[Rfam]
RNA sequence: GCACUCCAGCAAACCCUGUCCGUCUGUGUCAGUACUGGGCCAGGGCAAUGCGAGGUGCCAUAGUGAUCCAAGGUAUAUCCAGACGGGCCUCCCUUCUGUUGGGGCUUGUCUCUACAACCUUGGCACAUGA
Numbered sequence: 001g002c003a004c005u006c007c008a009g010c011a012a013a014c015c016c017u018g019u020c021c022g023u024c025u026g027u028g029u030c031a032g033u034a035c036u037g038g039g040c041c042a043g044g045g046c047a048a049u050g051c052g053a054g055g056u057g058c059c060a061u062a063g064u065g066a067u068c069c070a071a072g073g074u075a076u077a078u079c080c081a082g083a084c085g086g087g088c089c090u091c092c093c094u095u096c097u098g099u100u101g102g103g104g105c106u107u108g109u110c111u112c113u114a115c116a117a118c119c120u121u122g123g124c125a126c127a128u129g130a
Base pairs, nucleotide, nucleotide: 001058002057003056004055005054014045015044016043017042018041020038021037068123069122070121071120072119073118081111082110083109084108085107086106087105088104091103092102093101
RNA: Small nucleolar RNA SNORA55
Organism: Conger conger